[Rfam]
RNA sequence: UGAUACUAGGGUUAAAAGCUACAAAACCUGCUCGUGCUUGCACGAUAAGGUUUUGCAGCUUUUAACCCGCAAAAACAUGAGGAUGCAGCGAUUUUCAAAGAAAAUCAGCGAAUCCGAAUGUUUUUAGAAUUGCGAAAGAUGCGAAGCAUCGGAGCAAUUCGUGAGUAUCA
Number, nucleotide and partner (000 for none) at each position: 001u170002g169003a168004u167005a166006c165007u164008a000009g000010g067011g066012u065013u064014a000015a000016a061017a060018g059019c058020u057021a000022c055023a054024a053025a052026a051027c050028c049029u048030g000031c000032u045033c044034g043035u042036g041037c000038u000039u000040g000041c036042a035043c034044g033045a032046u000047a000048a029049g028050g027051u026052u025053u024054u023055g022056c000057a020058g019059c018060u017061u016062u000063u000064a013065a012066c011067c010068c000069g000070c000071a125072a124073a123074a122075a121076c120077a119078u118079g000080a000081g115082g114083a113084u112085g000086c000087a000088g109089c108090g106091a105092u104093u103094u102095u101096c100097a000098a000099a000100g096101a095102a094103a093104a092105u091106c090107a000108g089109c088110g000111a000112a084113u083114c082115c081116g000117a000118a078119u077120g076121u075122u074123u073124u072125u071126a000127g160128a159129a158130u157131u156132g155133c154134g000135a000136a000137a000138g150139a149140u148141g147142c000143g000144a000145a000146g000147c141148a140149u139150c138151g000152g000153a000154g133155c132156a131157a130158u129159u128160c127161g000162u000163g000164a007165g006166u005167a004168u003169c002170a001